[Rfam]
Nucleotides: 075
Stems, first nucleotide, its partner, number of pairs: 003073004008068004013064003018059002021057003027052005
Number, partner (000 for none) and nucleotide at each position: 001000g002000a003073a004072a005071a006070a007000u008068a009067g010066c011065u012000a013064g014063c015062g016000u017000u018059u019058g020000u021057u022056u023055u024000a025000u026000u027052u028051g029050g030049u031048a032000u033000g034000u035000a036000u037000a038000u039000u040000u041000g042000c043000u044000a045000c046000u047000a048031u049030a050029u051028c052027a053000u054000a055023a056022g057021a058019c059018a060000c061000a062015c063014g064013c065011g066010g067009c068008u069000a070006u071005u072004u073003u074000c075000a